[Rfam]
RNA: Group II catalytic intron D1-D4-7
RNA sequence: CUGUUUCGUCAGCAGUCUCCUACGGUAGGUGUAUAACCAAUAAGGUUCUUGUACUAAGUGGCUCGGACAAUGAGGCCCUUCCGAAAGGAGAAGUUUGAACCGUGAGGGGAAAGCAACUGCUAUGAGUGUCAUAUAGUUAGGGGA
Dot-bracket structure: ((((.......))))........(((.((((((..(.(......).)..)))))).....)))...............((((....))))..((((...((....))...))))....((((((.......)))))).......
Numbered sequence: 001c002u003g004u005u006u007c008g009u010c011a012g013c014a015g016u017c018u019c020c021u022a023c024g025g026u027a028g029g030u031g032u033a034u035a036a037c038c039a040a041u042a043a044g045g046u047u048c049u050u051g052u053a054c055u056a057a058g059u060g061g062c063u064c065g066g067a068c069a070a071u072g073a074g075g076c077c078c079u080u081c082c083g084a085a086a087g088g089a090g091a092a093g094u095u096u097g098a099a100c101c102g103u104g105a106g107g108g109g110a111a112a113g114c115a116a117c118u119g120c121u122a123u124g125a126g127u128g129u130c131a132u133a134u135a136g137u138u139a140g141g142g143g144a
Stems, first nucleotide, its partner, number of pairs: 001015004024063003028055006036047001038045001079090004093114004100107002119137006